[Rfam]
Shown here is an 88-nucleotide RNA sequence from Alkaliphilus pronyensis, a member of the family "c-di-GMP-I riboswitch aptamer". Its Rfam clan is "c-di-GMP_I riboswitch clan".
RNA sequence: UGAAGAUAAUGGCAAACUUUUUGAAAGAAAAGGACGCAAAGCUAUGGGUCUAAGGGAUAAAAUAUCCUAUGACAGCCAAGUUGCCUAA
Numbered sequence: 001u002g003a004a005g006a007u008a009a010u011g012g013c014a015a016a017c018u019u020u021u022u023g024a025a026a027g028a029a030a031a032g033g034a035c036g037c038a039a040a041g042c043u044a045u046g047g048g049u050c051u052a053a054g055g056g057a058u059a060a061a062a063u064a065u066c067c068u069a070u071g072a073c074a075g076c077c078a079a080g081u082u083g084c085c086u087a088a
Base pairs, nucleotide, nucleotide: 012037013036017032018031019030020029021028022027040082041081042080043079045078046077047076048073049072050071055067056066057065058064